This 114-nucleotide RNA from Humibacillus sp. DSM 29435 belongs to the Rfam family "SAM (S-adenosyl methionine) riboswitch aptamer". Its family is annotated with regulation of gene expression and S-adenosylmethionine metabolic process in the Gene Ontology. Pairs were carried over by alignment from the consensus structure, which is taken from published work. Taxonomically the source falls in Humibacillus (Bacteria, Actinomycetota, Micrococcales, Intrasporangiaceae).
RNA sequence: GGUCAUGAGUACCAGCGACAAGCCCCGGCUCGCUGGUCGGCAACCCUCCUCUGCGGUGGGGUGCCCCGGGUGAAGACCUGGCCACGUCCCCCAGGACGUGUGCAAGCGCGAGCA
Numbered sequence: 001g002g003u004c005a006u007g008a009g010u011a012c013c014a015g016c017g018a019c020a021a022g023c024c025c026c027g028g029c030u031c032g033c034u035g036g037u038c039g040g041c042a043a044c045c046c047u048c049c050u051c052u053g054c055g056g057u058g059g060g061g062u063g064c065c066c067c068g069g070g071u072g073a074a075g076a077c078c079u080g081g082c083c084a085c086g087u088c089c090c091c092c093a094g095g096a097c098g099u100g101u102g103c104a105a106g107c108g109c110g111a112g113c114a
Base pairs, nucleotide, nucleotide: 001078002077003076004075009038011037012036013035014034015033016032021030022029039065040064041063044061045060046059048056049055081103082102083100084099085098086097087096088095089094